[Rfam]
RNA sequence: CUAAGCAGUUAAGCGCCUGAACUAUUGCUCGUACGUAUGAGCAAUAGUUGACGAGGAGGAGGAGUAUCGAAGUAGAUCGGCGGAUACCUCCCGGUUGCAAUACCUCCAGCCGUUAGAUGUUAUUUGAAAACAGAGAGGCGACUCUUUGCACAAAAAUACAUCAAGAGGAAA
Numbered sequence: 001c002u003a004a005g006c007a008g009u010u011a012a013g014c015g016c017c018u019g020a021a022c023u024a025u026u027g028c029u030c031g032u033a034c035g036u037a038u039g040a041g042c043a044a045u046a047g048u049u050g051a052c053g054a055g056g057a058g059g060a061g062g063a064g065u066a067u068c069g070a071a072g073u074a075g076a077u078c079g080g081c082g083g084a085u086a087c088c089u090c091c092c093g094g095u096u097g098c099a100a101u102a103c104c105u106c107c108a109g110c111c112g113u114u115a116g117a118u119g120u121u122a123u124u125u126g127a128a129a130a131c132a133g134a135g136a137g138g139c140g141a142c143u144c145u146u147u148g149c150a151c152a153a154a155a156a157u158a159c160a161u162c163a164a165g166a167g168g169a170a171a
Stems, first nucleotide, its partner, number of pairs: 020049008029040001058091005067080004092112006117161004122157002131148007
This 171-nucleotide sequence from Amphibacillus marinus belongs to the Rfam family "glmS glucosamine-6-phosphate activated ribozyme aptamer". The literature on the family includes a 2004 paper in Nature by Winkler et al., "Control of gene expression by a natural metabolite-responsive ribozyme". It is annotated as a riboswitch. The family's consensus secondary structure is taken from published work.